A member of the RNA family "Lysine riboswitch aptamer" from Oceanobacillus zhaokaii, 178 nucleotides long. Lineage of the source: Bacteria > Bacillota > Bacilli > Bacillaceae > Oceanobacillus. Rfam links the family to the GO term lysine biosynthetic process. Riboswitches are metabolite binding domains within certain messenger RNAs that serve as precision sensors for their corresponding targets.

RNA sequence: CGGUGAGGUAGAGGUGCAAGUAAUAUUAGUAAUCAACAGGAGAAUGACAACGAUGAUUGUUGAUAAAAGGGUUGCUUGCCGAAGCGUAAUAAGAGUCAAUCUUAUUAUUGCUGGUGUAUCUUUAAAUAAGGGAUAUACUGUCAUGCUUUUACAAAGAGUGUGGGGAACUACUGAUCGA
Dot-bracket structure: ......(((((....(((((((((.......((((((((.................))))))))......)))))))))...((((((((((((.....)))))))).))))(((((((((((.....))))))))))).(((((((.........)))))))....)))))......